RNA: Guanidine-II riboswitch aptamer (mini-ykkC)
Organism: Luteimonas yindakuii
RNA sequence: ACGCGGGGACGACCCCGCCGCUCCAACCGCAUCGGGGACGGCCCC
Numbered sequence: 001a002c003g004c005g006g007g008g009a010c011g012a013c014c015c016c017g018c019c020g021c022u023c024c025a026a027c028c029g030c031a032u033c034g035g036g037g038a039c040g041g042c043c044c045c
Stems, first nucleotide, its partner, number of pairs: 003018006034045004